[Rfam]
RNA sequence: GGGAAAUGAUGAGUGGUCAAAGCUCGCAGUUCUAUGUGAGAAUUGGGUGUCCAGCCUAAGCCUGGUUACGACAAUAUGGGCACUCCCAAUUGUUACCGAUCUGAUCCC
Numbered sequence: 001g002g003g004a005a006a007u008g009a010u011g012a013g014u015g016g017u018c019a020a021a022g023c024u025c026g027c028a029g030u031u032c033u034a035u036g037u038g039a040g041a042a043u044u045g046g047g048u049g050u051c052c053a054g055c056c057u058a059a060g061c062c063u064g065g066u067u068a069c070g071a072c073a074a075u076a077u078g079g080g081c082a083c084u085c086c087c088a089a090u091u092g093u094u095a096c097c098g099a100u101c102u103g104a105u106c107c108c
Base pairs, nucleotide, nucleotide: 001108002107003106004105014098015097016096017095024041025040027038045085046084047083048082049081050080051079063078064077065075066074